[Rfam]
RNA sequence: AUGCGAAGGUCCCAGAAGAGGGGUAUGGACUCCAGCGCGAGAUCUCUAUAACACAAAAUAUGUUUCUUCGCAAACUGAACGGCCGAAUCGUAGGAUGCUUCUAAUUUGGGUGCAUAUCGAACCCUCGGCUAAAUAUUU
Number, nucleotide and partner (000 for none) at each position: 001a000002u000003g071004c070005g069006a068007a067008g066009g065010u000011c020012c000013c018014a000015g000016a000017a000018g013019a000020g011021g000022g000023g000024u000025a000026u048027g047028g046029a000030c041031u040032c039033c000034a000035g000036c000037g000038c000039g032040a031041g030042a000043u000044c000045u000046c028047u027048a026049u000050a000051a000052c000053a000054c000055a000056a000057a000058a000059u000060a000061u000062g000063u000064u000065u009066c008067u007068u006069c005070g004071c003072a000073a000074a000075c000076u000077g000078a000079a000080c000081g000082g129083c128084c127085g126086a125087a000088u000089c000090g000091u000092a000093g000094g000095a115096u000097g113098c112099u000100u110101c109102u108103a107104a000105u000106u000107u103108g102109g101110g100111u000112g098113c097114a000115u095116a000117u000118c000119g000120a000121a000122c000123c000124c000125u086126c085127g084128g083129c082130u000131a000132a000133a000134u000135a000136u000137u000138u000
The record is a 138-nucleotide sequence from Actinidia chinensis, which matches "Small nucleolar RNA snoR145" in Rfam.
The literature on the family includes a 2009 paper in Nucleic Acids Res by Chen and Wu, "Mining small RNA sequencing data: a new approach to identify small nucleolar RNAs in Arabidopsis".